Overview: A member of the RNA family "Wolbachia sRNA 46" from Salvia splendens, 146 nucleotides long. It is annotated as a small RNA. The literature on the family includes a 2014 paper in Proc Natl Acad Sci U S A by Mayoral et al., "Wolbachia small noncoding RNAs and their role in cross-kingdom communications".
RNA sequence: UCUUAUUGGUGAAAAAGUGGAUAUCUUUGGGGCAAAUGGUACUGGAACACAAAUUUAUAUAUGAUCUUGAAGUAUCAACGAGAUUCCAUAAAUAAAUUUGUGUUCCAGUACCAUCUGCCUCAAAGAUACCCACUUUUUUACCAAUA
Numbered sequence: 001u002c003u004u005a006u007u008g009g010u011g012a013a014a015a016a017g018u019g020g021a022u023a024u025c026u027u028u029g030g031g032g033c034a035a036a037u038g039g040u041a042c043u044g045g046a047a048c049a050c051a052a053a054u055u056u057a058u059a060u061a062u063g064a065u066c067u068u069g070a071a072g073u074a075u076c077a078a079c080g081a082g083a084u085u086c087c088a089u090a091a092a093u094a095a096a097u098u099u100g101u102g103u104u105c106c107a108g109u110a111c112c113a114u115c116u117g118c119c120u121c122a123a124a125g126a127u128a129c130c131c132a133c134u135u136u137u138u139u140a141c142c143a144a145u146a
Base pairs, nucleotide, nucleotide: 011141013139014138015137022128023127024126025125026124027123028122029121030120031119032118033117034116036114037113038112039111040110041109042108043107044106045105046104047103048102049101050100051099052098